[Rfam]
Rfam assigns this 67-nucleotide RNA sequence from Zestomonas carbonaria to the family "Repression of heat shock gene expression (ROSE) element".
On this family, see Krajewski et al., PLoS One 2013: "Short ROSE-Like RNA Thermometers Control IbpA Synthesis in Pseudomonas Species".
RNA sequence: GUCGGGAUGCCGAAGUCGGGUCCCGCCAUCAACCACUCGCUGAAAUCUCAGGAGAAUCGUUAUGAGC
Numbered sequence: 001g002u003c004g005g006g007a008u009g010c011c012g013a014a015g016u017c018g019g020g021u022c023c024c025g026c027c028a029u030c031a032a033c034c035a036c037u038c039g040c041u042g043a044a045a046u047c048u049c050a051g052g053a054g055a056a057u058c059g060u061u062a063u064g065a066g067c
Stems, first nucleotide, its partner, number of pairs: 001027001003025006010019003036054003040051004
Dot-bracket structure: (.((((((.(((....))))))))).)........(((.((((....))))))).............

It scores 65 bits against the family's covariance model.